[Rfam]
RNA sequence: UAUGUGAAGCAGAAGCAUCCCCGCUUCUCACCUGAUUGACGCUAGUGCUGUUGGCAGGUUAAAGGAAUUAGUUUUCAUUAUGAGAAUGAUAGAUGGCGGGGCGUAUUAUGCGCUCGGCCAUUUUUGUUUGUU
Numbered sequence: 001u002a003u004g005u006g007a008a009g010c011a012g013a014a015g016c017a018u019c020c021c022c023g024c025u026u027c028u029c030a031c032c033u034g035a036u037u038g039a040c041g042c043u044a045g046u047g048c049u050g051u052u053g054g055c056a057g058g059u060u061a062a063a064g065g066a067a068u069u070a071g072u073u074u075u076c077a078u079u080a081u082g083a084g085a086a087u088g089a090u091a092g093a094u095g096g097c098g099g100g101g102c103g104u105a106u107u108a109u110g111c112g113c114u115c116g117g118c119c120a121u122u123u124u125u126g127u128u129u130g131u132u
Base pairs, nucleotide, nucleotide: 011028012027013026014025015024016023030059031058032057038052039051040050041048042047095119096118097117099115100114101113102112103111104110
This 132-nucleotide RNA from Bacillus oleivorans belongs to the Rfam family "Ribosomal protein L20 leader". This family is a putative r-protein leader autoregulatory structure found in B. subtilis and other low-GC Gram-positive bacteria. It scores 69 bits against the family's covariance model. Rfam classes the family as a cis-regulatory leader. The organism belongs to Bacillus, within Bacteria.